Shown here is a 160-nucleotide RNA sequence from Blastococcus sp. TF02-09, a member of the family "c-di-AMP riboswitch aptamer (ydaO/yuaA leader)". NCBI's taxonomy places the organism under Bacteria, Bacillati, Actinomycetes, Geodermatophilales, Blastococcus. This family represents a conserved RNA structure found upstream of the ydaO and yuaA genes in Bacillus subtilis and related genes in other bacteria.
[Rfam]
RNA sequence: CGGCGGACCCCGCCGAACCCGCCGGCCUGAUGGUCGGGGGGACCGGGGACCCACCGCAGUCCUGGGGUGAGUCCUGCCCGCGUACGGGGACGCCGGGCAGGUAAAGCACUCAUGAGCCCGAACCCGUCAGCUAACUCGGUAGGCGGACGUGAGGAACGGA
Numbered sequence: 001c002g003g004c005g006g007a008c009c010c011c012g013c014c015g016a017a018c019c020c021g022c023c024g025g026c027c028u029g030a031u032g033g034u035c036g037g038g039g040g041g042a043c044c045g046g047g048g049a050c051c052c053a054c055c056g057c058a059g060u061c062c063u064g065g066g067g068u069g070a071g072u073c074c075u076g077c078c079c080g081c082g083u084a085c086g087g088g089g090a091c092g093c094c095g096g097g098c099a100g101g102u103a104a105a106g107c108a109c110u111c112a113u114g115a116g117c118c119c120g121a122a123c124c125c126g127u128c129a130g131c132u133a134a135c136u137c138g139g140u141a142g143g144c145g146g147a148c149g150u151g152a153g154g155a156a157c158g159g160a
Stems, first nucleotide, its partner, number of pairs: 011145004018041003042140006052064002065125003073101008106117002